Background: Rfam assigns this 84-nucleotide sequence from Lemna minor to the family "Plastid-rpl20 3UTR RNA". It is one of the family's seed sequences. The base pairs follow the family's consensus structure, which was predicted with LocARNA. A reference for the family is Richter et al. (2023), "Retrograde signaling in plants: A critical review focusing on the GUN pathway and beyond", Plant Commun.
RNA sequence: AUUCCCCGGAGAAUAAACUCCGGGAACAUAGAAUAAAAAAAUUAAGUUAAGAUAAGUAGUAUAAAUGAACGAACAUGUUUCAAU
Dot-bracket structure: ..(.(((((((......))))))).)........................................((((......))))....
Numbered sequence: 001a002u003u004c005c006c007c008g009g010a011g012a013a014u015a016a017a018c019u020c021c022g023g024g025a026a027c028a029u030a031g032a033a034u035a036a037a038a039a040a041a042u043u044a045a046g047u048u049a050a051g052a053u054a055a056g057u058a059g060u061a062u063a064a065a066u067g068a069a070c071g072a073a074c075a076u077g078u079u080u081c082a083a084u
Stems, first nucleotide, its partner, number of pairs: 003026001005024007067080004